[Rfam]
RNA sequence: AAAACUAUGCAAAUUCAAUACAUUGCAGGAGUCGAAUAGGCCU
Number, nucleotide and partner (000 for none) at each position: 001a000002a000003a000004a000005c000006u029007a000008u027009g026010c025011a024012a023013a000014u000015u000016c000017a000018a000019u000020a000021c000022a000023u012024u011025g010026c009027a008028g000029g006030a000031g000032u000033c000034g000035a000036a000037u000038a000039g000040g000041c000042c000043u000